[Rfam]
RNA sequence: GUAAAAUCAAAGGGGUGCCCCAAGCGGGCUGAGAUUAUACCCUCGAACCUGAUGCAGUUAGCACUGCCGUAGGAAUUGGAUAUAUACACUUC
Number, nucleotide and partner (000 for none) at each position: 001g000002u000003a000004a000005a000006a000007u079008c078009a077010a076011a043012g042013g041014g040015g000016u037017g029018c028019c027020c026021c000022a000023a000024g000025c000026g020027g019028g018029c017030u000031g000032a000033g000034a000035u000036u000037a016038u000039a000040c014041c013042c012043u011044c000045g000046a000047a000048c073049c072050u071051g070052a000053u000054g067055c066056a065057g064058u000059u000060a000061g000062c000063a000064c057065u056066g055067c054068c000069g000070u051071a050072g049073g048074a000075a000076u010077u009078g008079g007080a000081u000082a000083u000084a000085u000086a000087c000088a000089c000090u000091u000092c000